[Rfam]
RNA sequence: UAAAGCUAGGUCUGUGGUUGAAAGUCGAAGCUAGUCGCAGGCAAAACGAUCCACGUAAUCUAGAUAAAAUGUCUAGGGAGCAUGGUGCGGUAUAGAAGUAAGUCCUGCCAGUUAAAGCUGAGAGGGUUAGUAGUGAGGAAUUAAUUUUUAGUAGCAAAAGCUCCAGCAGGCGAGUGUGGGGUCAAAAACCAGGUCAGCUAGCUUUA
Numbered sequence: 001u002a003a004a005g006c007u008a009g010g011u012c013u014g015u016g017g018u019u020g021a022a023a024g025u026c027g028a029a030g031c032u033a034g035u036c037g038c039a040g041g042c043a044a045a046a047c048g049a050u051c052c053a054c055g056u057a058a059u060c061u062a063g064a065u066a067a068a069a070u071g072u073c074u075a076g077g078g079a080g081c082a083u084g085g086u087g088c089g090g091u092a093u094a095g096a097a098g099u100a101a102g103u104c105c106u107g108c109c110a111g112u113u114a115a116a117g118c119u120g121a122g123a124g125g126g127u128u129a130g131u132a133g134u135g136a137g138g139a140a141u142u143a144a145u146u147u148u149u150a151g152u153a154g155c156a157a158a159a160g161c162u163c164c165a166g167c168a169g170g171c172g173a174g175u176g177u178g179g180g181g182u183c184a185a186a187a188a189c190c191a192g193g194u195c196a197g198c199u200a201g202c203u204u205u206a
Stems, first nucleotide, its partner, number of pairs: 001206009012197003015191005028177001030175001031041001034091006050085002059076001063072001083184001104170005109120004124163004133155002139148002
The record is a 206-nucleotide RNA from Clostridium sp. SM-530-WT-3G, which matches "raiA RNA" in Rfam.
A search with the family's covariance model found it, with a score of 195 bits.
Pairs were carried over by alignment from the consensus structure, which is taken from published work.